[Rfam]
RNA sequence: CGGACCAGUGACUCGGCCGCGCCCGACGCCAAAGACAAAGAACCGGGGAAAGAACCAAACCCACCCCACCCAGCCCGUCACGCACCGAACCCCUGUUCACUCGGUCGGGUGAUCGCGUCCAAUUCGGCUGGCGCGUCGGUGGAUUGAUCGGGCAGCGUCGGCUCCGACAGACAACCGCACACAGCAAACGGCCCCCGCCGGGACUGGCAUCCCGAACGAGGGCCUCAUCACCCAGGAAGACAGGACCUUCCCG
Dot-bracket structure: .......(((........(((...........................................................))).............((((((....))))))..............(((((..........................)))))...........................(((((.((..((((......))))...)).)))))....)))...(((((.......)))))..
Numbered sequence: 001c002g003g004a005c006c007a008g009u010g011a012c013u014c015g016g017c018c019g020c021g022c023c024c025g026a027c028g029c030c031a032a033a034g035a036c037a038a039a040g041a042a043c044c045g046g047g048g049a050a051a052g053a054a055c056c057a058a059a060c061c062c063a064c065c066c067c068a069c070c071c072a073g074c075c076c077g078u079c080a081c082g083c084a085c086c087g088a089a090c091c092c093c094u095g096u097u098c099a100c101u102c103g104g105u106c107g108g109g110u111g112a113u114c115g116c117g118u119c120c121a122a123u124u125c126g127g128c129u130g131g132c133g134c135g136u137c138g139g140u141g142g143a144u145u146g147a148u149c150g151g152g153c154a155g156c157g158u159c160g161g162c163u164c165c166g167a168c169a170g171a172c173a174a175c176c177g178c179a180c181a182c183a184g185c186a187a188a189c190g191g192c193c194c195c196c197g198c199c200g201g202g203a204c205u206g207g208c209a210u211c212c213c214g215a216a217c218g219a220g221g222g223c224c225u226c227a228u229c230a231c232c233c234a235g236g237a238a239g240a241c242a243g244g245a246c247c248u249u250c251c252c253g
Stems, first nucleotide, its partner, number of pairs: 008231003019083003097112006127162005190224005196218002200213004235251005